[Rfam]
RNA: MIR4371 microRNA precursor family
RNA sequence: CCGUUAAGUGAUGACGUGACAAAUAAAAUGAUAUAUCAUAACGCCUUGUCACAAACACUUCAUUAUCACGUUAUCACUUUUAAUGACGUGACAAUGACAUGUUAGUAAUUGGGUGUAAUGACAUGACAUUCUGUCUUUCACGUUAUCACUCAGUAGAA
Numbered sequence: 001c002c003g004u005u006a007a008g009u010g011a012u013g014a015c016g017u018g019a020c021a022a023a024u025a026a027a028a029u030g031a032u033a034u035a036u037c038a039u040a041a042c043g044c045c046u047u048g049u050c051a052c053a054a055a056c057a058c059u060u061c062a063u064u065a066u067c068a069c070g071u072u073a074u075c076a077c078u079u080u081u082a083a084u085g086a087c088g089u090g091a092c093a094a095u096g097a098c099a100u101g102u103u104a105g106u107a108a109u110u111g112g113g114u115g116u117a118a119u120g121a122c123a124u125g126a127c128a129u130u131c132u133g134u135c136u137u138u139c140a141c142g143u144u145a146u147c148a149c150u151c152a153g154u155a156g157a158a
Stems, first nucleotide, its partner, number of pairs: 001156001003154003007150013021136001023134003027130004032125003036121004041116006048109002051106002054103004070087005